[Rfam]
RNA sequence: CUUCAAGAAUUGUGGCCGCCAAGCUCCGACUUUGGCCACAUACCAACCCCACGCUCGUUGGGUGGUUCGGAUGACGAAGCGGCCUGCAUCAGCCACUGGCUACCGGUGCGGGCAAGAGCACCCG
Numbered sequence: 001c002u003u004c005a006a007g008a009a010u011u012g013u014g015g016c017c018g019c020c021a022a023g024c025u026c027c028g029a030c031u032u033u034g035g036c037c038a039c040a041u042a043c044c045a046a047c048c049c050c051a052c053g054c055u056c057g058u059u060g061g062g063u064g065g066u067u068c069g070g071a072u073g074a075c076g077a078a079g080c081g082g083c084c085u086g087c088a089u090c091a092g093c094c095a096c097u098g099g100c101u102a103c104c105g106g107u108g109c110g111g112g113c114a115a116g117a118g119c120a121c122c123c124g
Stems, first nucleotide, its partner, number of pairs: 001079004009041001011040006022031002042066003047062003051058002082113009
RNA: SAM (S-adenosyl methionine) riboswitch aptamer